[Rfam]
RNA sequence: GUGUUUUUCAUAGUAUUAGAUUUAAGGUUAACAAAGGUUGGGACUCAGCGGAGCCCCUUUUUUUAUU
Numbered sequence: 001g002u003g004u005u006u007u008u009c010a011u012a013g014u015a016u017u018a019g020a021u022u023u024a025a026g027g028u029u030a031a032c033a034a035a036g037g038u039u040g041g042g043a044c045u046c047a048g049c050g051g052a053g054c055c056c057c058u059u060u061u062u063u064u065a066u067u
Stems, first nucleotide, its partner, number of pairs: 040057003044053003
RNA: Bacteroidetes FopS (family of paralogous sRNAs)
Organism: Prevotella sp. oral taxon 299